[Rfam]
Source information: The family of this 74-nucleotide sequence from Mytilus coruscus is "mir-34 microRNA precursor family". The organism belongs to Mytilus, within Eukaryota. A reference for the family is Lim et al. (2003), "Vertebrate microRNA genes", Science.
Nucleotides: 074
Stems, first nucleotide, its partner, number of pairs: 002073004009066002012063007021054002024052008
Number, partner (000 for none) and nucleotide at each position: 001000g002073u003072u004071u005070u006000u007000g008000u009066g010065g011000c012063a013062g014061u015060g016059u017058g018057g019000u020000u021054a022053g023000c024052u025051g026050g027049u028048u029047g030046u031045c032000u033000u034000g035000g036000c037000a038000a039000c040000a041000a042000g043000a044000g045031g046030a047029c048028a049027a050026c051025c052024a053022c054021u055000u056000u057018c058017u059016a060015c061014a062013c063012u064000u065010c066009c067000u068000c069000u070005a071004a072003g073002a074000c
Rfam describes the family as follows. Human mir-34a was discovered computationally and later experimentally verified. The family's consensus secondary structure was predicted with RNAalifold. Its Rfam clan is "mir-34 clan".